[Rfam]
RNA sequence: CUGUAACUAAUGUUAAGACCUCUUUUUGCGUCAACAGCAGUUCACCUAGUGAGUGUUGAUGCUUUGGGUCUGAGUGA
Numbered sequence: 001c002u003g004u005a006a007c008u009a010a011u012g013u014u015a016a017g018a019c020c021u022c023u024u025u026u027u028g029c030g031u032c033a034a035c036a037g038c039a040g041u042u043c044a045c046c047u048a049g050u051g052a053g054u055g056u057u058g059a060u061g062c063u064u065u066g067g068g069u070c071u072g073a074g075u076g077a
Base pairs, nucleotide, nucleotide: 002076003075004074010031011030012029
Dot-bracket structure: .(((.....(((................)))..........................................))).

Shown here is a 77-nucleotide RNA sequence from Otolemur garnettii, a member of the family "Small nucleolar RNA SNORD56". The family's RNA type in Rfam is C/D-box small nucleolar RNA. A search with the family's covariance model found it, with a score of 63 bits. A reference for the family is Galardi et al. (2002), "Purified box C/D snoRNPs are able to reproduce site-specific 2'-O-methylation of target RNA in vitro", Mol Cell Biol.